[Rfam]
RNA: tRNA
RNA sequence: AGUCCAUUAGGGUAGUGGCCAAUCCUUCGAGCUUCUGGGGCUCGAGACGCUGGUUCGAAUCCAGCAUGGACUA
Numbered sequence: 001a002g003u004c005c006a007u008u009a010g011g012g013u014a015g016u017g018g019c020c021a022a023u024c025c026u027u028c029g030a031g032c033u034u035c036u037g038g039g040g041c042u043c044g045a046g047a048c049g050c051u052g053g054u055u056c057g058a059a060u061c062c063a064g065c066a067u068g069g070a071c072u073a
Base pairs, nucleotide, nucleotide: 001072002071003070004069005068006067007066010026011025012024028044029043030042031041032040049065050064051063052062053061